[Rfam]
RNA sequence: GUGCGAGGACGACCUCCCCGAAUCGGGCAGUUUCGCCGGGACGACCCGG
Numbered sequence: 001g002u003g004c005g006a007g008g009a010c011g012a013c014c015u016c017c018c019c020g021a022a023u024c025g026g027g028c029a030g031u032u033u034c035g036c037c038g039g040g041a042c043g044a045c046c047c048g049g
Base pairs, nucleotide, nucleotide: 003018005016006015007014008013036049037048038047039046040045
RNA: Guanidine-II riboswitch aptamer (mini-ykkC)
Organism: Paracoccus sp. R12_2